About this RNA
A member of the RNA family "SAM riboswitch aptamer (S box leader)" from Olavius algarvensis associated proteobacterium Delta 3, 97 nucleotides long. A search with the family's covariance model found it, with a score of 55 bits.
RNA sequence: UAUUCAUGGAGAGCGGCGUGAGGGACCUGGCCCGGUGACCGCCCAGCAACCUGUUCCAGCAAGGUGCUAAUUCCAGACCCAUUGGGGUACAUGACGC
Numbered sequence: 001u002a003u004u005c006a007u008g009g010a011g012a013g014c015g016g017c018g019u020g021a022g023g024g025a026c027c028u029g030g031c032c033c034g035g036u037g038a039c040c041g042c043c044c045a046g047c048a049a050c051c052u053g054u055u056c057c058a059g060c061a062a063g064g065u066g067c068u069a070a071u072u073c074c075a076g077a078c079c080c081a082u083u084g085g086g087g088u089a090c091a092u093g094a095c096g097c
Stems, first nucleotide, its partner, number of pairs: 004094005013044001015043004022033003027076004045068004050064002052061003072089001078085002